[Rfam]
RNA sequence: AGUAUCCUGGGGUGUGCGUCACAUCUUCGGCUAUAAACCCUCACGAUUUUGCCGGGAGUAUCUGUUGGCAGGUGAAUGGUCAAGCUCGCUGCGGGCGAGAAGACCGGAGCCGCCACAAUGCACCCACCUGCCUUUGGGCGGGUAUUAUAGCAAGGAUGAACGGCACCACGGGAUUCUU
Numbered sequence: 001a002g003u004a005u006c007c008u009g010g011g012g013u014g015u016g017c018g019u020c021a022c023a024u025c026u027u028c029g030g031c032u033a034u035a036a037a038c039c040c041u042c043a044c045g046a047u048u049u050u051g052c053c054g055g056g057a058g059u060a061u062c063u064g065u066u067g068g069c070a071g072g073u074g075a076a077u078g079g080u081c082a083a084g085c086u087c088g089c090u091g092c093g094g095g096c097g098a099g100a101a102g103a104c105c106g107g108a109g110c111c112g113c114c115a116c117a118a119u120g121c122a123c124c125c126a127c128c129u130g131c132c133u134u135u136g137g138g139c140g141g142g143u144a145u146u147a148u149a150g151c152a153a154g155g156a157u158g159a160a161c162g163g164c165a166c167c168a169c170g171g172g173a174u175u176c177u178u
Stems, first nucleotide, its partner, number of pairs: 002176001004174006011167005017162003030151007037143003054125003058121004065115001067114003071111003079104002085099005
RNA: 6S / SsrS RNA
Organism: Clostridium sp. CAG:1024